[Rfam]
RNA sequence: GGAGGUGUUUCCGGGUCUGGUGACCGGCACGGUCUUCAAAACCGUUGAGGCGGGCUGCGCUCGCCUGGCGAGUUCGAUUCUCGUCCACCUCC
Numbered sequence: 001g002g003a004g005g006u007g008u009u010u011c012c013g014g015g016u017c018u019g020g021u022g023a024c025c026g027g028c029a030c031g032g033u034c035u036u037c038a039a040a041a042c043c044g045u046u047g048a049g050g051c052g053g054g055c056u057g058c059g060c061u062c063g064c065c066u067g068g069c070g071a072g073u074u075c076g077a078u079u080c081u082c083g084u085c086c087a088c089c090u091c092c
Stems, first nucleotide, its partner, number of pairs: 001092007012027001014025004029045005048066005069083004
RNA: Selenocysteine transfer RNA
Organism: Actinomadura darangshiensis